Rfam assigns this 110-nucleotide sequence from Aquilegia coerulea to the family "Small nucleolar RNA snoR97". NCBI's taxonomy places the organism under Eukaryota, Streptophytina, Mesangiospermae, Ranunculales, Aquilegia. It scores 72 bits against the family's covariance model. Its family is annotated with nucleolus and RNA processing in the Gene Ontology.
RNA sequence: CUUGCUUAGUGAAGGCAUGUAGGCUGAAAUGACUCAGAAAGUUUUGUGUUGUUCAUCAGCUUCAUUUCUUGUAUACCACGAAUUGGGAGUUAAAUGAUGACACUAUAUUU
Dot-bracket structure: .............................................((((((......((((((..(((...........)))...))))))......)))))).......